[Rfam]
RNA sequence: UCGGCCCCGGUUCACGCCCCGCAAUCCGCGCAGGCGACCCGGUGCC
Numbered sequence: 001u002c003g004g005c006c007c008c009g010g011u012u013c014a015c016g017c018c019c020c021g022c023a024a025u026c027c028g029c030g031c032a033g034g035c036g037a038c039c040c041g042g043u044g045c046c
Base pairs, nucleotide, nucleotide: 003046004045005044007042008041009040010039015036016035017034018033020030021029022028